Source information: The family of this 48-nucleotide RNA from Streptomyces olivoverticillatus is "raiA-hairpin RNA".
[Rfam]
RNA sequence: CGCCUAGUCGGUGGCUCCGGGUACCCCCGGGGCUUGAUGCAAGAGGGA
Numbered sequence: 001c002g003c004c005u006a007g008u009c010g011g012u013g014g015c016u017c018c019g020g021g022u023a024c025c026c027c028c029g030g031g032g033c034u035u036g037a038u039g040c041a042a043g044a045g046g047g048a
Stems, first nucleotide, its partner, number of pairs: 013034008
The base pairs follow the family's consensus structure, which is taken from published work. The family's RNA type in Rfam is small RNA. NCBI's taxonomy places the organism under Bacteria, Bacillati, Actinomycetes, Kitasatosporales, Streptomyces.